[Rfam]
RNA: DUF3800-VIII RNA
RNA sequence: AACAUCCUGUCCAAUCGAAGGCUUGCGUGCCACGCGGGGUAUUCGUAGGUUGGAUGGGGUAAA
Numbered sequence: 001a002a003c004a005u006c007c008u009g010u011c012c013a014a015u016c017g018a019a020g021g022c023u024u025g026c027g028u029g030c031c032a033c034g035c036g037g038g039g040u041a042u043u044c045g046u047a048g049g050u051u052g053g054a055u056g057g058g059g060u061a062a063a
Base pairs, nucleotide, nucleotide: 004060005059006058007057008056009055010054011053012052013051014050015049016048020040022038023037024036025035026034027033028032